This 154-nucleotide RNA sequence from Blautia liquoris belongs to the Rfam family "Clostridiales-1 RNA".

[Rfam]
RNA sequence: UGAUACCAGGGUCAAAAGGUUAUGCGUUUCAUGCUUGCAUGAAAAAGCAUAACUUUGGGACCCGAACAAACAUGAGAAUGAAGCCCGAACAGGGCGGAAUUCGAAUGUUUGAGGAUUGCGGGAGCCCGAAAGGGCGGAGCAAUCCGUGGUAUCA
Numbered sequence: 001u002g003a004u005a006c007c008a009g010g011g012u013c014a015a016a017a018g019g020u021u022a023u024g025c026g027u028u029u030c031a032u033g034c035u036u037g038c039a040u041g042a043a044a045a046a047g048c049a050u051a052a053c054u055u056u057g058g059g060a061c062c063c064g065a066a067c068a069a070a071c072a073u074g075a076g077a078a079u080g081a082a083g084c085c086c087g088a089a090c091a092g093g094g095c096g097g098a099a100u101u102c103g104a105a106u107g108u109u110u111g112a113g114g115a116u117u118g119c120g121g122g123a124g125c126c127c128g129a130a131a132g133g134g135c136g137g138a139g140c141a142a143u144c145c146g147u148g149g150u151a152u153c154a
Stems, first nucleotide, its partner, number of pairs: 001154007010062004016056010027045002029042005067111007076102004083095004113145007124135004